[Rfam]
RNA: TPP riboswitch aptamer (THI element)
Organism: Microbacterium halimionae
RNA sequence: CCUUGAAACCACGGGAGUCCGGUGUGCCGGGCUGAGAGGAAGCGAAAACGCUUCGACCGUCGAACCUGAUCCGGGUCAUGCCGGCGCAGGAAGGGAGUAACGAUGCACA
Numbered sequence: 001c002c003u004u005g006a007a008a009c010c011a012c013g014g015g016a017g018u019c020c021g022g023u024g025u026g027c028c029g030g031g032c033u034g035a036g037a038g039g040a041a042g043c044g045a046a047a048a049c050g051c052u053u054c055g056a057c058c059g060u061c062g063a064a065c066c067u068g069a070u071c072c073g074g075g076u077c078a079u080g081c082c083g084g085c086g087c088a089g090g091a092a093g094g095g096a097g098u099a100a101c102g103a104u105g106c107a108c109a
Stems, first nucleotide, its partner, number of pairs: 009094002011060004017032005039054005065090004071084004